[Rfam]
RNA sequence: UUUGGGAUGUGAUGAGAUAAUCUACGAUUAUCAGAUGUUCAAUUUUAUUGUUCUAUGCUGAAUAAUUGCACGUCAGUCUGAUCCCAAU
Numbered sequence: 001u002u003u004g005g006g007a008u009g010u011g012a013u014g015a016g017a018u019a020a021u022c023u024a025c026g027a028u029u030a031u032c033a034g035a036u037g038u039u040c041a042a043u044u045u046u047a048u049u050g051u052u053c054u055a056u057g058c059u060g061a062a063u064a065a066u067u068g069c070a071c072g073u074c075a076g077u078c079u080g081a082u083c084c085c086a087a088u
Base pairs, nucleotide, nucleotide: 002087003086004085005084006083007082
Notes:
A member of the RNA family "Small nucleolar RNA Z122" from Aquilegia coerulea, 88 nucleotides long. Rfam links the family to the GO terms nucleolus and RNA processing. The family's RNA type in Rfam is C/D-box small nucleolar RNA.